[Rfam]
RNA sequence: AGAGGUAGUGUGAGGCCAUAGCAGAAGCGCUCAUGGUGUAGCUAUGUCAGACUCCAAUGAAUCUGCAAAUUCUUCC
Numbered sequence: 001a002g003a004g005g006u007a008g009u010g011u012g013a014g015g016c017c018a019u020a021g022c023a024g025a026a027g028c029g030c031u032c033a034u035g036g037u038g039u040a041g042c043u044a045u046g047u048c049a050g051a052c053u054c055c056a057a058u059g060a061a062u063c064u065g066c067a068a069a070u071u072c073u074u075c076c
Base pairs, nucleotide, nucleotide: 014043015042016041021075023073024072025071026070027039028038029037048065049064050063051062053060054059

About this RNA
This 76-nucleotide RNA from Crocodylus porosus belongs to the Rfam family "Mammalian CPEB3 ribozyme". The source organism's lineage runs through Eukaryota, Tetrapoda, Archelosauria, Archosauria and Crocodylus. Pairs were carried over by alignment from the consensus structure, which is taken from published work. The match comes from Rfam's covariance-model search (45 bits).